[Rfam]
RNA sequence: AGAACCUUUAAAUCAGUCCUGUGAGGCUGGUAAGGUAAUGCGGAAUAAUUUUAUUUCUUUCUAUGCAUGUUAAGGUAAGUUAGCUUAACAUGUCAUCAUUUUGCAUGCAUCUUGCCACCACGCCAGGCAAGGUGCUUUUUUAAU
Numbered sequence: 001a002g003a004a005c006c007u008u009u010a011a012a013u014c015a016g017u018c019c020u021g022u023g024a025g026g027c028u029g030g031u032a033a034g035g036u037a038a039u040g041c042g043g044a045a046u047a048a049u050u051u052u053a054u055u056u057c058u059u060u061c062u063a064u065g066c067a068u069g070u071u072a073a074g075g076u077a078a079g080u081u082a083g084c085u086u087a088a089c090a091u092g093u094c095a096u097c098a099u100u101u102u103g104c105a106u107g108c109a110u111c112u113u114g115c116c117a118c119c120a121c122g123c124c125a126g127g128c129a130a131g132g133u134g135c136u137u138u139u140u141u142a143a144u
Stems, first nucleotide, its partner, number of pairs: 004036005013030006065093010076082002103139001105137001107135010
RNA: PyrR binding site
Organism: Oceanobacillus piezotolerans